[Rfam]
Shown here is a 66-nucleotide sequence from Oreochromis niloticus, a member of the family "mir-9242 microRNA precursor family".
RNA sequence: AGCUGACCUCUGUGGGAGUAGCGUUCAGGUAGCUCUACCUGAACGCUACUCCCACAGAGGUCAGCU
Numbered sequence: 001a002g003c004u005g006a007c008c009u010c011u012g013u014g015g016g017a018g019u020a021g022c023g024u025u026c027a028g029g030u031a032g033c034u035c036u037a038c039c040u041g042a043a044c045g046c047u048a049c050u051c052c053c054a055c056a057g058a059g060g061u062c063a064g065c066u
Stems, first nucleotide, its partner, number of pairs: 001066031

The source organism's lineage runs through Eukaryota, Percomorphaceae, Cichliformes, Pseudocrenilabrinae and Oreochromis.